[Rfam]
Notes
The record is a 77-nucleotide RNA from Conger conger, which matches "mir-96 microRNA precursor family" in Rfam. The literature on the family includes a 2003 paper in Dev Cell by Houbaviy et al., "Embryonic stem cell-specific MicroRNAs". Its family is annotated with miRNA-mediated post-transcriptional gene silencing and RISC complex in the Gene Ontology. The base pairs follow the family's consensus structure, which was predicted with RNAalifold.
RNA sequence: UUGCCCAUUUUGGCACUAGCACAUUUUGCUUCUGUAUAAAUCUGUUGAGCAAUUAUGUGUGGUGCCAAUAUAGGAGA
Number, nucleotide and partner (000 for none) at each position: 001u000002u000003g000004c074005c073006c000007a071008u070009u000010u068011u067012g066013g065014c064015a063016c062017u061018a000019g060020c059021a058022c057023a056024u055025u000026u052027u051028g050029c049030u048031u047032c000033u000034g000035u000036a000037u000038a000039a000040a000041u000042c000043u000044g000045u000046u000047g031048a030049g029050c028051a027052a026053u000054u000055a024056u023057g022058u021059g020060u019061g017062g016063u015064g014065c013066c012067a011068a010069u000070a008071u007072a000073g005074g004075a000076g000077a000